[Rfam]
This 145-nucleotide sequence from Bacilli bacterium VT-13-104 belongs to the Rfam family "c-di-AMP riboswitch aptamer (ydaO/yuaA leader)". The base pairs follow the family's consensus structure. The organism belongs to Bacilli, within Bacteria. This family represents a conserved RNA structure found upstream of the ydaO and yuaA genes in Bacillus subtilis and related genes in other bacteria. Rfam links the family to the GO terms cyclic-di-AMP binding and regulation of gene expression.
RNA sequence: AUUUCUAAAUCGCCGAAACCUCUGUGUGCGGGGGAACCAUCUGGAUUCAAUGGAAUCCAAGGGGUGAAUCCUUUUUUAAAAAAGGUAGGGCUACUCAAUGGCCCGAAUCCGACAGCUAACCUCGUAAGCGUUAUGGAGAAGGAUG
Numbered sequence: 001a002u003u004u005c006u007a008a009a010u011c012g013c014c015g016a017a018a019c020c021u022c023u024g025u026g027u028g029c030g031g032g033g034g035a036a037c038c039a040u041c042u043g044g045a046u047u048c049a050a051u052g053g054a055a056u057c058c059a060a061g062g063g064g065u066g067a068a069u070c071c072u073u074u075u076u077u078a079a080a081a082a083a084g085g086u087a088g089g090g091c092u093a094c095u096c097a098a099u100g101g102c103c104c105g106a107a108u109c110c111g112a113c114a115g116c117u118a119a120c121c122u123c124g125u126a127a128g129c130g131u132u133a134u135g136g137a138g139a140a141g142g143a144u145g
Stems, first nucleotide, its partner, number of pairs: 011130003018027002028125006038061001062110003070085004088104004